RNA sequence: ACGCUUGAUGGUAAAACUAUAUUAAUUUCACCAUAAUUACCAUAAAAAACAAUCAAAAAGAAGAUUAUGGUAUAUC
Number, nucleotide and partner (000 for none) at each position: 001a000002c000003g000004c000005u000006u000007g000008a000009u000010g000011g000012u000013a000014a000015a000016a000017c000018u000019a000020u000021a000022u000023u000024a000025a000026u000027u000028u000029c000030a071031c070032c069033a068034u067035a066036a065037u064038u000039a000040c000041c000042a000043u000044a000045a000046a000047a000048a000049a000050c000051a000052a000053u000054c000055a000056a000057a000058a000059a000060g000061a000062a000063g000064a037065u036066u035067a034068u033069g032070g031071u030072a000073u000074a000075u000076c000
RNA: dfrA-dnaX RNA